Rfam assigns this 171-nucleotide RNA from Dethiobacter alkaliphilus to the family "Group II catalytic intron D1-D4-3". Rfam's curators put it in the seed alignment. Pairs were carried over by alignment from the consensus structure. Lineage of the source: Bacteria > Bacillati > Bacillota > Dethiobacter > Dethiobacter alkaliphilus.

RNA sequence: UCCACCGUGAGGUGGAGUGUGAAGGAAGGCGGCGGCAAAUCUCCGGCCUGACGAACAGAAAUCGUAUCAGGCGCAAAUUGAGGAUAAGGCUGCCAAACGAGUCGAAGUCCAAUAGCUACACGGAAUCAAUUUGUGUAAAUGCGGCAGGUAGAUGGAGAGAAAGACUGCGUU
Numbered sequence: 001u002c003c004a005c006c007g008u009g010a011g012g013u014g015g016a017g018u019g020u021g022a023a024g025g026a027a028g029g030c031g032g033c034g035g036c037a038a039a040u041c042u043c044c045g046g047c048c049u050g051a052c053g054a055a056c057a058g059a060a061a062u063c064g065u066a067u068c069a070g071g072c073g074c075a076a077a078u079u080g081a082g083g084a085u086a087a088g089g090c091u092g093c094c095a096a097a098c099g100a101g102u103c104g105a106a107g108u109c110c111a112a113u114a115g116c117u118a119c120a121c122g123g124a125a126u127c128a129a130u131u132u133g134u135g136u137a138a139a140u141g142c143g144g145c146a147g148g149u150a151g152a153u154g155g156a157g158a159g160a161a162a163g164a165c166u167g168c169g170u171u
Base pairs, nucleotide, nucleotide: 001016002015003014004013005012006011028171029170030169031168036163040158041157042156043155044154045153046149047148048147049146050145062144063143064142065141066140071136072135073134075132076131077130078129079128080127081126082110083109084108085107088103089102090101091100